[Rfam]
RNA sequence: UUUCUCAGCUCCUGCAUUGUACACACUGUGCGUGUUGAUGGUACGUGCACACAGCGCAUACAAUGUGGAUGCUGCGUGG
Numbered sequence: 001u002u003u004c005u006c007a008g009c010u011c012c013u014g015c016a017u018u019g020u021a022c023a024c025a026c027u028g029u030g031c032g033u034g035u036u037g038a039u040g041g042u043a044c045g046u047g048c049a050c051a052c053a054g055c056g057c058a059u060a061c062a063a064u065g066u067g068g069a070u071g072c073u074g075c076g077u078g079g
Stems, first nucleotide, its partner, number of pairs: 012068002015065007024056001026054005

The record is a 79-nucleotide RNA from Gouania willdenowi, which matches "mir-460 microRNA precursor family" in Rfam. Gene Ontology terms of the family: RISC complex and miRNA-mediated post-transcriptional gene silencing. A reference for the family is Chen et al. (2005), "The developmental miRNA profiles of zebrafish as determined by small RNA cloning", Genes Dev.